[Rfam]
RNA sequence: UGAUACAAGGGUCAAAAGGUCCUGCGUUUCAUGCUUGCAUGAAAAAGCAUGACCUUGGGACCCGAACAAACAUGAGAAUGCAGCCCGACAGGGCGGAAUUCGAAUGUUUGUAAGAUUACGGAAGCACAAAGUGCGGAGUAAUCUGUGUAUCA
Numbered sequence: 001u002g003a004u005a006c007a008a009g010g011g012u013c014a015a016a017a018g019g020u021c022c023u024g025c026g027u028u029u030c031a032u033g034c035u036u037g038c039a040u041g042a043a044a045a046a047g048c049a050u051g052a053c054c055u056u057g058g059g060a061c062c063c064g065a066a067c068a069a070a071c072a073u074g075a076g077a078a079u080g081c082a083g084c085c086c087g088a089c090a091g092g093g094c095g096g097a098a099u100u101c102g103a104a105u106g107u108u109u110g111u112a113a114g115a116u117u118a119c120g121g122a123a124g125c126a127c128a129a130a131g132u133g134c135g136g137a138g139u140a141a142u143c144u145g146u147g148u149a150u151c152a
Stems, first nucleotide, its partner, number of pairs: 001152007010062004016056006023049003027045002029042005066111008076101004083094004113144007124134004
Shown here is a 152-nucleotide sequence from Blautia liquoris, a member of the family "Clostridiales-1 RNA". The family's RNA type in Rfam is small RNA. The source organism's lineage runs through Bacteria, Bacillota, Clostridia, Lachnospiraceae and Blautia.